[Rfam]
RNA sequence: GGCGAUAAAUUGCGGCGUAUAAUAGACGCAGCGGACCCGGGGGCAGUACCCGGCGGCUCCACCAUCGCAGCUGACGUAAGGGAUUCGCCAUGGCGAGUUUCGUGCGACCAGCGUCGCUGAUGGGGCCGAACCAGGAUCGACGUGUGUUGAAAAGCGCUGUUUUCGUUCGGAAUGGGACCACCGUGACGGCCCAUAUAUACAAGUGCCAACGAUAACGAGGCUCUUGCGAUUGCCGCGUAA
Numbered sequence: 001g002g003c004g005a006u007a008a009a010u011u012g013c014g015g016c017g018u019a020u021a022a023u024a025g026a027c028g029c030a031g032c033g034g035a036c037c038c039g040g041g042g043g044c045a046g047u048a049c050c051c052g053g054c055g056g057c058u059c060c061a062c063c064a065u066c067g068c069a070g071c072u073g074a075c076g077u078a079a080g081g082g083a084u085u086c087g088c089c090a091u092g093g094c095g096a097g098u099u100u101c102g103u104g105c106g107a108c109c110a111g112c113g114u115c116g117c118u119g120a121u122g123g124g125g126c127c128g129a130a131c132c133a134g135g136a137u138c139g140a141c142g143u144g145u146g147u148u149g150a151a152a153a154g155c156g157c158u159g160u161u162u163u164c165g166u167u168c169g170g171a172a173u174g175g176g177a178c179c180a181c182c183g184u185g186a187c188g189g190c191c192c193a194u195a196u197a198u199a200c201a202a203g204u205g206c207c208a209a210c211g212a213u214a215a216c217g218a219g220g221c222u223c224u225u226g227c228g229a230u231u232g233c234c235g236c237g238u239a240a
Base pairs, nucleotide, nucleotide: 001167002166003165004164005163015157016156017155018154027146028145029144031143032142033141037053038052039051040050041049054128055127056126057125058124059123060122168183169182170181
The record is a 240-nucleotide sequence from Sphingomonas carotinifaciens, which matches "permuted transfer-messenger RNA" in Rfam. Gene Ontology term of the family: RNA catabolic process.